A member of the RNA family "U2 spliceosomal RNA" from Oncorhynchus tshawytscha, 171 nucleotides long. Taxonomically the source falls in Oncorhynchus (Eukaryota, Craniata, Teleostei, Euteleosteomorpha). The family has 208 seed sequences and 71,512 matches in Rfam 15.1. It scores 91 bits against the family's covariance model. By type it is a spliceosomal small nuclear RNA.
RNA sequence: AUAUUAUUUUAUUAAAAAAAAAUCUGUUCUUAUCAGUUUAAUAUCUGAUACGUCCCCCAUCGGGGGGGACUACAUAUAAAUGGAUUUUCUAACAUGGAGUGGAAAUGGGGCUUGCUCCGUCCGCUCCACGCAUCGACCCGGUAUUGCAGUACCUCCGGGAACGUAUUUUUG
Numbered sequence: 001a002u003a004u005u006a007u008u009u010u011a012u013u014a015a016a017a018a019a020a021a022a023u024c025u026g027u028u029c030u031u032a033u034c035a036g037u038u039u040a041a042u043a044u045c046u047g048a049u050a051c052g053u054c055c056c057c058c059a060u061c062g063g064g065g066g067g068g069a070c071u072a073c074a075u076a077u078a079a080a081u082g083g084a085u086u087u088u089c090u091a092a093c094a095u096g097g098a099g100u101g102g103a104a105a106u107g108g109g110g111c112u113u114g115c116u117c118c119g120u121c122c123g124c125u126c127c128a129c130g131c132a133u134c135g136a137c138c139c140g141g142u143a144u145u146g147c148a149g150u151a152c153c154u155c156c157g158g159g160a161a162c163g164u165a166u167u168u169u170u171g
Stems, first nucleotide, its partner, number of pairs: 003012002031050006053067006096127008107118004130164002135162001137159005